[Rfam]
RNA sequence: GUGAUUGACAGAGCUUUGAGAGUUUUACUGGCCGUCAAAUUUGGUUCUCGACCCGCUGUCACCAAUUACGCUGCUUUUUCCUUUUUAUUAACUCCUAUACUUGUGUACGCCCAAAAUCAGAUUGUUUUGGGCGUUUUUUU
Numbered sequence: 001g002u003g004a005u006u007g008a009c010a011g012a013g014c015u016u017u018g019a020g021a022g023u024u025u026u027a028c029u030g031g032c033c034g035u036c037a038a039a040u041u042u043g044g045u046u047c048u049c050g051a052c053c054c055g056c057u058g059u060c061a062c063c064a065a066u067u068a069c070g071c072u073g074c075u076u077u078u079u080c081c082u083u084u085u086u087a088u089u090a091a092c093u094c095c096u097a098u099a100c101u102u103g104u105g106u107a108c109g110c111c112c113a114a115a116a117u118c119a120g121a122u123u124g125u126u127u128u129g130g131g132c133g134u135u136u137u138u139u140u
Stems, first nucleotide, its partner, number of pairs: 001069005006061006016051006031045004107134011
Rfam assigns this 140-nucleotide sequence from Vibrio cholerae to the family "Vibrio regulatory RNA of OmpA". Rfam's curators put it in the seed alignment. Pairs were carried over by alignment from the consensus structure, which is taken from published work. Its family is annotated with negative regulation of translation and mRNA binding in the Gene Ontology. On this family, see Sabharwal et al., RNA Biol 2015: "The VrrA sRNA controls a stationary phase survival factor Vrp of Vibrio cholerae".